Notes:
The family of this 230-nucleotide RNA from Firmicutes bacterium CAG:194 is "Clostridiales-1 RNA". It scores 68 bits against the family's covariance model.

RNA sequence: CAGAGCCAGGCAGAUUUAUAUAAAAUUGCCCGUCAAGCUUGCUUGGAGAGGGCAAUUUUUAUAAAUCUAUAUGGCGAGCAGCCAUCAUGAGCAAAAGGAAAGCCUCGAAGAGGCGAUUUUGCGAAUGAGGCUCUGCAGUGUUACAAAAAACAUAGAAGCGUAAGCUUCGCGAUAUGCGAAUGUCUGAGAGAAUUGCGGGAGUGCGGAGCACGUAGCAAUUCGUGGUAUUA
Numbered sequence: 001c002a003g004a005g006c007c008a009g010g011c012a013g014a015u016u017u018a019u020a021u022a023a024a025a026u027u028g029c030c031c032g033u034c035a036a037g038c039u040u041g042c043u044u045g046g047a048g049a050g051g052g053c054a055a056u057u058u059u060u061a062u063a064a065a066u067c068u069a070u071a072u073g074g075c076g077a078g079c080a081g082c083c084a085u086c087a088u089g090a091g092c093a094a095a096a097g098g099a100a101a102g103c104c105u106c107g108a109a110g111a112g113g114c115g116a117u118u119u120u121g122c123g124a125a126u127g128a129g130g131c132u133c134u135g136c137a138g139u140g141u142u143a144c145a146a147a148a149a150a151c152a153u154a155g156a157a158g159c160g161u162a163a164g165c166u167u168c169g170c171g172a173u174a175u176g177c178g179a180a181u182g183u184c185u186g187a188g189a190g191a192a193u194u195g196c197g198g199g200a201g202u203g204c205g206g207a208g209c210a211c212g213u214a215g216c217a218a219u220u221c222g223u224g225g226u227a228u229u230a
Base pairs, nucleotide, nucleotide: 002229003228005226006225007224011073012072014070017063018062019061020060022059023058024057025056026055027054028053029052030051031050033046034045035044036043037042079186080185081184083182084181085180091177092176093175098170100167101166102165103164190221191220192219193218194217195216196215201211202210203209204208
Dot-bracket structure: .((.(((...((.(..((((.((((((((((.(((((....)))))...))))))))))))))......).)).....(((.(((.....(((....(.((((............................................................))))..)....)))..))).)))...(((((((....((((...))))...)))))))..))).)).